[Rfam]
RNA sequence: UAAAAUCAUUGUUAGAUGAGGCUCCUAUACUGGAAAUAUGCUACUGCCGCGAAAUGUCGAGAGACGCCAAGCUGGUUAAACAAAAUAAAUCGUGAAGGUUUAUUUCAAUGUAGCUAGAACAUUUUCUUACGCCGUAUAGUGCUAAAGUUCAACGAUAGGCUAAUGUG
Numbered sequence: 001u002a003a004a005a006u007c008a009u010u011g012u013u014a015g016a017u018g019a020g021g022c023u024c025c026u027a028u029a030c031u032g033g034a035a036a037u038a039u040g041c042u043a044c045u046g047c048c049g050c051g052a053a054a055u056g057u058c059g060a061g062a063g064a065c066g067c068c069a070a071g072c073u074g075g076u077u078a079a080a081c082a083a084a085a086u087a088a089a090u091c092g093u094g095a096a097g098g099u100u101u102a103u104u105u106c107a108a109u110g111u112a113g114c115u116a117g118a119a120c121a122u123u124u125u126c127u128u129a130c131g132c133c134g135u136a137u138a139g140u141g142c143u144a145a146a147g148u149u150c151a152a153c154g155a156u157a158g159g160c161u162a163a164u165g166u167g
Base pairs, nucleotide, nucleotide: 006162009159010158011153012152013096015149016148017147020143021142022141025139026138027137028136029135030134032133033132040114041113042112043111044110046076047075048074049072050071055066056065057064058063083105084104085103086102089099090098091097116127117126118125
Dot-bracket structure: .....(..(((([.(((..(((..((((((.((......(((((.(((((....((((....))))....)).)))......((((..(((....])))..))))....))))).(((......)))....)))))))).)))...)))..))....))..).....